[Rfam]
The family of this 93-nucleotide RNA sequence from Pelolinea submarina is "c-di-GMP-I riboswitch aptamer". Rfam links the family to the GO term cyclic-di-GMP binding. About the family: GEMM was predicted in a large-scale screen for bacterial structured RNA regulatory elements.
RNA sequence: CAAUCGAAAAGGCAAAUCCUGCGAAAGCUGGAGACGCAAAGCUAAUGGUCUAAAGUGAUCGUUCAUGAUUACUAUGAUUGCAGAGCUGCCGAA
Numbered sequence: 001c002a003a004u005c006g007a008a009a010a011g012g013c014a015a016a017u018c019c020u021g022c023g024a025a026a027g028c029u030g031g032a033g034a035c036g037c038a039a040a041g042c043u044a045a046u047g048g049u050c051u052a053a054a055g056u057g058a059u060c061g062u063u064c065a066u067g068a069u070u071a072c073u074a075u076g077a078u079u080g081c082a083g084a085g086c087u088g089c090c091g092a093a
Base pairs, nucleotide, nucleotide: 012037013036017032018031019030021028022027040087041086042085043084046082047081048078049077050076055072056071057070058069059068060067061066
The organism belongs to Pelolinea, within Bacteria. It scores 76 bits against the family's covariance model.